[Rfam]
RNA sequence: UGAUCCUUUAAGCCGGUCCCGCGAGGCCGGUAAGGAGCUACGGUCAGGGUAUGCCCGUGUAGACGUGGGAUAUCAAGGCCUCCUUGCCGCUGGGACAAGGAGGCCUUUUGUU
Numbered sequence: 001u002g003a004u005c006c007u008u009u010a011a012g013c014c015g016g017u018c019c020c021g022c023g024a025g026g027c028c029g030g031u032a033a034g035g036a037g038c039u040a041c042g043g044u045c046a047g048g049g050u051a052u053g054c055c056c057g058u059g060u061a062g063a064c065g066u067g068g069g070a071u072a073u074c075a076a077g078g079c080c081u082c083c084u085u086g087c088c089g090c091u092g093g094g095a096c097a098a099g100g101a102g103g104c105c106u107u108u109u110g111u112u
Stems, first nucleotide, its partner, number of pairs: 004036005013030006054069006075107012088094001
The family of this 112-nucleotide RNA from Clostridiales bacterium PH28_bin88 is "PyrR binding site". It is annotated as a cis-regulatory element. The organism belongs to Eubacteriales, within Bacteria. The base pairs follow the family's consensus structure, which is taken from published work.